[Rfam]
RNA sequence: ACUACUAAGCCAUCUCUCCAGCCCAAUUCUUACUCACUUUAAAGAAAUUAUGUCGGGCUGGAGAGAUGGCUUAGCGGU
Numbered sequence: 001a002c003u004a005c006u007a008a009g010c011c012a013u014c015u016c017u018c019c020a021g022c023c024c025a026a027u028u029c030u031u032a033c034u035c036a037c038u039u040u041a042a043a044g045a046a047a048u049u050a051u052g053u054c055g056g057g058c059u060g061g062a063g064a065g066a067u068g069g070c071u072u073a074g075c076g077g078u
Stems, first nucleotide, its partner, number of pairs: 002077002005074020

Shown here is a 78-nucleotide RNA from Jaculus jaculus, a member of the family "mir-3473 microRNA precursor family".
Its family is annotated with miRNA-mediated post-transcriptional gene silencing, RISC complex and cellular response to mechanical stimulus in the Gene Ontology.
It scores 75 bits against the family's covariance model.